[Rfam]
RNA sequence: CAUGAACAGGAAACUCAUUCUCGUAGUAGGAAAGCGCGUGGGCAAGGCGGUGUAACCGCCGGGCGAAAUCCUCCCAUGCGCUGCACAGGCUCCCUUCCGGGGGCCUUUUUUAUUUCCGGAA
Numbered sequence: 001c002a003u004g005a006a007c008a009g010g011a012a013a014c015u016c017a018u019u020c021u022c023g024u025a026g027u028a029g030g031a032a033a034g035c036g037c038g039u040g041g042g043c044a045a046g047g048c049g050g051u052g053u054a055a056c057c058g059c060c061g062g063g064c065g066a067a068a069u070c071c072u073c074c075c076a077u078g079c080g081c082u083g084c085a086c087a088g089g090c091u092c093c094c095u096u097c098c099g100g101g102g103g104c105c106u107u108u109u110u111u112a113u114u115u116c117c118g119g120a121a
Stems, first nucleotide, its partner, number of pairs: 029117004033082010046060005063070001087106008
Shown here is a 121-nucleotide sequence from Manganibacter manganicus, a member of the family "Rhizobiales sRNA Atu_C8". The match comes from Rfam's covariance-model search (98 bits). For this family Rfam cites "Deep sequencing uncovers numerous small RNAs on all four replicons of the plant pathogen Agrobacterium tumefaciens" (Wilms et al., RNA Biol, 2012). It is annotated as a small RNA.